[Rfam]
The family of this 101-nucleotide sequence from Theropithecus gelada is "Y RNA". It is annotated as a non-coding RNA gene.

RNA sequence: GGCUGGUACAAAUGCAGUGCUGUUGAUAACUAACUGUUCACAACCACUACAGAUUUCUUUGUUCCUUCUUGACUCCCACUGCUUCGUUUGACUGCUCUUAA
Numbered sequence: 001g002g003c004u005g006g007u008a009c010a011a012a013u014g015c016a017g018u019g020c021u022g023u024u025g026a027u028a029a030c031u032a033a034c035u036g037u038u039c040a041c042a043a044c045c046a047c048u049a050c051a052g053a054u055u056u057c058u059u060u061g062u063u064c065c066u067u068c069u070u071g072a073c074u075c076c077c078a079c080u081g082c083u084u085c086g087u088u089u090g091a092c093u094g095c096u097c098u099u100a101a
Stems, first nucleotide, its partner, number of pairs: 001097002004094004010089002014085001016080004022075001028063003032059002
Pairs were carried over by alignment from the consensus structure, which is taken from published work.